[Rfam]
RNA: Small nucleolar RNA R44/J54/Z268 family
Organism: Leersia perrieri
Nucleotides: 099
Base pairs, nucleotide, nucleotide: 002098003097004096005095006094
Number, partner (000 for none) and nucleotide at each position: 001000g002098a003097a004096g005095c006094a007000g008000g009000u010000g011000a012000u013000g014000a015000g016000a017000a018000c019000a020000a021000g022000a023000c024000a025000g026000g027000g028000a029000c030000a031000u032000c033000a034000g035000c036000a037000c038000c039000c040000u041000c042000u043000c044000u045000g046000u047000u048000u049000u050000g051000a052000g053000a054000u055000g056000g057000g058000a059000a060000u061000g062000u063000u064000c065000g066000a067000c068000u069000a070000a071000g072000u073000c074000u075000a076000u077000a078000a079000u080000g081000g082000g083000a084000a085000u086000c087000u088000c089000u090000c091000u092000g093000a094006u095005g096004c097003u098002u099000u